[Rfam]
RNA: Streptococcus sRNA SpR08
Organism: Streptococcus pneumoniae
RNA sequence: AAAAAACGGAUAUAAUGUAUUUGAAGAUGUUGCUAGUAGAAAGAACUUAAUAAGCUUCUUAACAUCGCAGUGA
Numbered sequence: 001a002a003a004a005a006a007c008g009g010a011u012a013u014a015a016u017g018u019a020u021u022u023g024a025a026g027a028u029g030u031u032g033c034u035a036g037u038a039g040a041a042a043g044a045a046c047u048u049a050a051u052a053a054g055c056u057u058c059u060u061a062a063c064a065u066c067g068c069a070g071u072g073a
Stems, first nucleotide, its partner, number of pairs: 007023007026066007035056003